[Rfam]
RNA: mir-1 microRNA precursor family
RNA sequence: CCCGAGGCCACAUGCUUCUUUAUAUCCGCAUAGAUAUCACUGCACUAUGGAAUGUAAGGAAGUGUGUGGUUUUGGC
Numbered sequence: 001c002c003c004g005a006g007g008c009c010a011c012a013u014g015c016u017u018c019u020u021u022a023u024a025u026c027c028g029c030a031u032a033g034a035u036a037u038c039a040c041u042g043c044a045c046u047a048u049g050g051a052a053u054g055u056a057a058g059g060a061a062g063u064g065u066g067u068g069g070u071u072u073u074g075g076c
Stems, first nucleotide, its partner, number of pairs: 007070019029049004